[Rfam]
Nucleotides: 052
Base pairs, nucleotide, nucleotide: 006048007047008046010044011043012042014040015039016038018036019035020034021033022031
Number, partner (000 for none) and nucleotide at each position: 001000u002000u003000u004000u005000u006048a007047g008046c009000c010044u011043a012042a013000g014040u015039a016038u017000g018036u019035c020034u021033u022031a023000u024000g025000c026000a027000a028000u029000g030000u031022u032000u033021g034020g035019g036018g037000c038016a039015u040014a041000c042012u043011u044010a045000u046008g047007c048006u049000a050000a051000a052000a
Rfam assigns this 52-nucleotide RNA from Diceros bicornis to the family "mir-1302 microRNA precursor family". The family has 24 seed sequences and 16,160 matches in Rfam 15.1. A reference for the family is Morin et al. (2008), "Application of massively parallel sequencing to microRNA profiling and discovery in human embryonic stem cells", Genome Res. The family's consensus secondary structure was predicted with WAR. The match comes from Rfam's covariance-model search (64 bits). Taxonomically the source falls in Diceros bicornis (Eukaryota, Bilateria, Amniota, Rhinocerotidae).